This 58-nucleotide sequence from Lolliginicoccus lacisalsi belongs to the Rfam family "msiK RNA". It is annotated as a cis-regulatory element. It scores 54 bits against the family's covariance model. Pairs were carried over by alignment from the consensus structure, which is taken from published work.

[Rfam]
RNA sequence: GACCAUUUCCCCGCACUCGGAUCGUCCGGCACGUUCCUGCCGGUGAAGGGAAUACCAC
Numbered sequence: 001g002a003c004c005a006u007u008u009c010c011c012c013g014c015a016c017u018c019g020g021a022u023c024g025u026c027c028g029g030c031a032c033g034u035u036c037c038u039g040c041c042g043g044u045g046a047a048g049g050g051a052a053u054a055c056c057a058c
Stems, first nucleotide, its partner, number of pairs: 009050003014045002026043006